[Rfam]
Overview: The record is a 125-nucleotide RNA from Marinimicrobium koreense, which matches "Ribosomal S15 leader" in Rfam. About the family: The E. coli Ribosomal S15 gene 5' UTR can form two alternative structures. One that is a series of three hairpins, The other includes a pseudoknot. This structure causes translational regulation of the S15 protein. The alignment of this family contains only the final two hairpins which are conserved in other species, and also includes the complete region that forms the alternate structures.
RNA sequence: CAACCCACCUGUAAAUAUGCGCGGGUGCGGCUGUUUCUUUUUACGGCAUAUUACAAGAGGAAAUGAUUAUGGCACUGAGUGCUGCAGAAAAAGCUGAAGUGGUUAAAGAGUACCAGCAGGCUGAA
Numbered sequence: 001c002a003a004c005c006c007a008c009c010u011g012u013a014a015a016u017a018u019g020c021g022c023g024g025g026u027g028c029g030g031c032u033g034u035u036u037c038u039u040u041u042u043a044c045g046g047c048a049u050a051u052u053a054c055a056a057g058a059g060g061a062a063a064u065g066a067u068u069a070u071g072g073c074a075c076u077g078a079g080u081g082c083u084g085c086a087g088a089a090a091a092a093g094c095u096g097a098a099g100u101g102g103u104u105a106a107a108g109a110g111u112a113c114c115a116g117c118a119g120g121c122u123g124a125a
Stems, first nucleotide, its partner, number of pairs: 007026006051079002056076002059073001

Description:
The organism belongs to Marinimicrobium, within Bacteria. The family's RNA type in Rfam is cis-regulatory leader. For this family Rfam cites "Pseudoknot and translational control in the expression of the S15 ribosomal protein" (Benard et al., Biochimie, 1996). Pairs were carried over by alignment from the consensus structure, which is taken from published work.